[Rfam]
RNA sequence: GGAUUGAUGAUGACUCCUUCAAUCUGCAUUCCUUGGAAAAGCUAAACAAAAUGAGUGAGAACUCCCUACCAUCGUUCUCACUGAAACUGAGGUCC
Numbered sequence: 001g002g003a004u005u006g007a008u009g010a011u012g013a014c015u016c017c018u019u020c021a022a023u024c025u026g027c028a029u030u031c032c033u034u035g036g037a038a039a040a041g042c043u044a045a046a047c048a049a050a051a052u053g054a055g056u057g058a059g060a061a062c063u064c065c066c067u068a069c070c071a072u073c074g075u076u077c078u079c080a081c082u083g084a085a086a087c088u089g090a091g092g093u094c095c
Base pairs, nucleotide, nucleotide: 001095002094003093004092005091027057028056029055030054031053033049034048035047
RNA: Small nucleolar RNA SNORD116
Organism: Nyctereutes procyonoides